The family of this 100-nucleotide RNA from Paenibacillus antarcticus is "Purine riboswitch aptamer". It scores 68 bits against the family's covariance model.

[Rfam]
RNA sequence: AAGUUACAUUUAUAUGAUUCUCGUAUAGGUGCAGGGAUAGGCCUGCAUGUCUCUACCCGAUCACCGAAAUGAUUGGACUACGGGUUAAUAAUAUAUUGUC
Numbered sequence: 001a002a003g004u005u006a007c008a009u010u011u012a013u014a015u016g017a018u019u020c021u022c023g024u025a026u027a028g029g030u031g032c033a034g035g036g037a038u039a040g041g042c043c044u045g046c047a048u049g050u051c052u053c054u055a056c057c058c059g060a061u062c063a064c065c066g067a068a069a070u071g072a073u074u075g076g077a078c079u080a081c082g083g084g085u086u087a088a089u090a091a092u093a094u095a096u097u098g099u100c
Stems, first nucleotide, its partner, number of pairs: 020084006029048007057076007